[Rfam]
Shown here is a 110-nucleotide RNA sequence from Phycicoccus endophyticus, a member of the family "SAM (S-adenosyl methionine) riboswitch aptamer".
Rfam 15.1 lists 2,360 matches to the family in 1,305 species.
Rfam links the family to the GO terms regulation of gene expression and S-adenosylmethionine metabolic process.
The source organism's lineage runs through Bacteria, Actinomycetota, Actinomycetes, Intrasporangiaceae and Phycicoccus.
The base pairs follow the family's consensus structure, which is taken from published work.
About the family: SAM-IV is a mRNA element that regulates gene expression via direct sensing of S-adenosylmethionine (SAM or AdoMet). SAM-IV riboswitches share conserved nucleotide positions with the previously described SAM-I riboswitches sequence analysis and molecular recognition experiments suggest that SAM-I and SAM-IV riboswitches share similar ligand binding sites, but have different scaffolds.
The match comes from Rfam's covariance-model search (100 bits).
RNA sequence: GGUCAUGAGUCCCAGUGCCAAACCCCGGUUUGCUGGGCGGCAACCCUCCUCGCGGUGGGGUGCCCCGGGUGAUGACCCGGCCGCAGGAACCACUGCGGCAAACGCGAGCU
Numbered sequence: 001g002g003u004c005a006u007g008a009g010u011c012c013c014a015g016u017g018c019c020a021a022a023c024c025c026c027g028g029u030u031u032g033c034u035g036g037g038c039g040g041c042a043a044c045c046c047u048c049c050u051c052g053c054g055g056u057g058g059g060g061u062g063c064c065c066c067g068g069g070u071g072a073u074g075a076c077c078c079g080g081c082c083g084c085a086g087g088a089a090c091c092a093c094u095g096c097g098g099c100a101a102a103c104g105c106g107a108g109c110u
Base pairs, nucleotide, nucleotide: 001077002076003075004074009038011037012036013035014034015033016032021030022029039064040063041062044060045059046058048055049054080099081098082097083096084095085094086093